[Rfam]
Shown here is a 45-nucleotide sequence from Planctomycetaceae bacterium SCGC AG-212-F19, a member of the family "Acido-Lenti-1 RNA". The family's RNA type in Rfam is small RNA. The source organism's lineage runs through Bacteria, Planctomycetota, Planctomycetia, Planctomycetales and Planctomycetaceae. Pairs were carried over by alignment from the consensus structure, which is taken from published work.

RNA sequence: CCCAGGGCUUCGCCCUGGGCUAGAAUCCCACGCCCCUUCGGGGCU
Number, nucleotide and partner (000 for none) at each position: 001c019002c018003c017004a016005g015006g014007g013008c012009u000010u000011c000012g008013c007014c006015c005016u004017g003018g002019g001020c000021u000022a000023g000024a000025a000026u000027c000028c000029c000030a000031c000032g044033c043034c042035c041036c040037u000038u000039c000040g036041g035042g034043g033044c032045u000